This 81-nucleotide RNA from Prevotella lacticifex belongs to the Rfam family "L13-Bacteroidia ribosomal protein leader".
RNA sequence: GCGUACUGAGACUUAGAAGGUUCGCAGCCGGCGGAUGUGUGAAUAGCCGUGUCUCUGGCCGGACACGAUGGUUCGUGAAUC
Numbered sequence: 001g002c003g004u005a006c007u008g009a010g011a012c013u014u015a016g017a018a019g020g021u022u023c024g025c026a027g028c029c030g031g032c033g034g035a036u037g038u039g040u041g042a043a044u045a046g047c048c049g050u051g052u053c054u055c056u057g058g059c060c061g062g063a064c065a066c067g068a069u070g071g072u073u074c075g076u077g078a079a080u081c
Stems, first nucleotide, its partner, number of pairs: 001025003005021002040075005046069001048067007
Pairs were carried over by alignment from the consensus structure, which is taken from published work.